The record is a 141-nucleotide sequence from Balaeniceps rex, which matches "U8 small nucleolar RNA" in Rfam. It scores 56 bits against the family's covariance model. The family's RNA type in Rfam is C/D-box small nucleolar RNA. On this family, see Peculis et al., Gene 2001: "The U8 snoRNA gene family: identification and characterization of distinct, functional U8 genes in Xenopus". Gene Ontology terms of the family: RNA processing and nucleolus.
RNA sequence: UCGUCAGUGCGGUACAUCCUGACCUGCCCCGCCUUGCGGGCAGCGCGUGAUGAGUCGGGGCGUGAUGACGUGUGAUUACGUCGUUUAGACCCCCGGGGGCUGGCGGAAAGGUGCAACACCCGCCGGCCCCGCCCCUCUGAC
Dot-bracket structure: .......................(((.(((((...)))))))).......................(..((.(....)..........))..)....(((((((((.............)))))))..))...........